[Rfam]
RNA sequence: AAAAAGAUACAAAUAAUAUCUCAUAUAUUUACUAAGGAUAUGGCUUAGAAGUUUCUACCUAGCACCGUAAAUGCUAGACUAUGAGAAAGAUGAAUCAUUGU
Numbered sequence: 001a002a003a004a005a006g007a008u009a010c011a012a013a014u015a016a017u018a019u020c021u022c023a024u025a026u027a028u029u030u031a032c033u034a035a036g037g038a039u040a041u042g043g044c045u046u047a048g049a050a051g052u053u054u055c056u057a058c059c060u061a062g063c064a065c066c067g068u069a070a071a072u073g074c075u076a077g078a079c080u081a082u083g084a085g086a087a088a089g090a091u092g093a094a095u096c097a098u099u100g101u
Stems, first nucleotide, its partner, number of pairs: 019086007029050002032048005059077006
A member of the RNA family "Purine riboswitch aptamer" from Oceanobacillus zhaokaii, 101 nucleotides long.
The match comes from Rfam's covariance-model search (82 bits).
The family's consensus secondary structure is taken from published work.